[Rfam]
RNA: Small nucleolar RNA SNORA49
Organism: Coregonus sp. 'balchen'
RNA sequence: CUUCCCCUCCCUUACUCCAGUCACUCUGUCCCCAGUGGAGUGGUCUGGCAUUGACAGGGGAUACAGCACCAUGGCUCUCACCUCUUUCAUCUAGGACAUUCAUCUUACAUUGGGCUUGUGUGAGAGCUGACAAU
Numbered sequence: 001c002u003u004c005c006c007c008u009c010c011c012u013u014a015c016u017c018c019a020g021u022c023a024c025u026c027u028g029u030c031c032c033c034a035g036u037g038g039a040g041u042g043g044u045c046u047g048g049c050a051u052u053g054a055c056a057g058g059g060g061a062u063a064c065a066g067c068a069c070c071a072u073g074g075c076u077c078u079c080a081c082c083u084c085u086u087u088c089a090u091c092u093a094g095g096a097c098a099u100u101c102a103u104c105u106u107a108c109a110u111u112g113g114g115c116u117u118g119u120g121u122g123a124g125a126g127c128u129g130a131c132a133a134u
Stems, first nucleotide, its partner, number of pairs: 003061006011053001017048004022043001023041005073128003077124002086114004095106002